Shown here is a 94-nucleotide RNA sequence from Erpetoichthys calabaricus, a member of the family "Small nucleolar RNA U83B".
For this family Rfam cites "Characterisation of the U83 and U84 small nucleolar RNAs: two novel 2'-O-ribose methylation guide RNAs that lack complementarities to ribosomal RNAs" (Jady and Kiss, Nucleic Acids Res, 2000).
About the family: U83B belongs to the C/D family of snoRNAs. U83B like U83A has no documented RNA target and they share the same host gene with the C/D box snoRNA U43 (RPL3).
Pairs were carried over by alignment from the consensus structure.
Rfam classes the family as a C/D-box small nucleolar RNA.
NCBI's taxonomy places the organism under Eukaryota, Vertebrata, Teleostomi, Cladistia, Erpetoichthys.
Its family is annotated with nucleolus and RNA processing in the Gene Ontology.
[Rfam]
RNA sequence: UGGUUUCUGUGAUGAUUCCAUGGAAUGAUGCGCCAGGCAUGGCGCCUGAUCAAUCUGAUGAGUCAUUCCAUGCUGCCUUCCUUCUGAGAAACUA
Numbered sequence: 001u002g003g004u005u006u007c008u009g010u011g012a013u014g015a016u017u018c019c020a021u022g023g024a025a026u027g028a029u030g031c032g033c034c035a036g037g038c039a040u041g042g043c044g045c046c047u048g049a050u051c052a053a054u055c056u057g058a059u060g061a062g063u064c065a066u067u068c069c070a071u072g073c074u075g076c077c078u079u080c081c082u083u084c085u086g087a088g089a090a091a092c093u094a
Base pairs, nucleotide, nucleotide: 001094002093003092004091005090